Source information: A member of the RNA family "mir-92 microRNA precursor family" from Varanus komodoensis, 82 nucleotides long.
RNA sequence: ACUCCUCCCCGGGUUGGGAUUUGUUGCAUUACUUGUGGGUCCUUGGAACAGUAUUGCACUUGUCCCGGCCUGUGGAGGGGGA
Numbered sequence: 001a002c003u004c005c006u007c008c009c010c011g012g013g014u015u016g017g018g019a020u021u022u023g024u025u026g027c028a029u030u031a032c033u034u035g036u037g038g039g040u041c042c043u044u045g046g047a048a049c050a051g052u053a054u055u056g057c058a059c060u061u062g063u064c065c066c067g068g069c070c071u072g073u074g075g076a077g078g079g080g081g082a
Base pairs, nucleotide, nucleotide: 004078005077006076010072011071012070013069014068016066017065018064019063020062023059024058026057027056028055030053031052032051033050

Description: Its Rfam clan is "mir-92 microRNA precursor clan". The match comes from Rfam's covariance-model search (71 bits). This family represents the microRNA precursor mir-92. Human miR-92 has two predicted hairpin precursor sequences: mir-92-1 on chromosome 13 and mir-92-2 on chromosome X. miR-92 has also been cloned from mouse embryonic stem cells. The mature sequence is excised from the 3' arm of the hairpin. For this family Rfam cites "Embryonic stem cell-specific MicroRNAs" (Houbaviy et al., Dev Cell, 2003). The base pairs follow the family's consensus structure, which was predicted with PFOLD. Gene Ontology terms of the family: RISC complex and miRNA-mediated post-transcriptional gene silencing.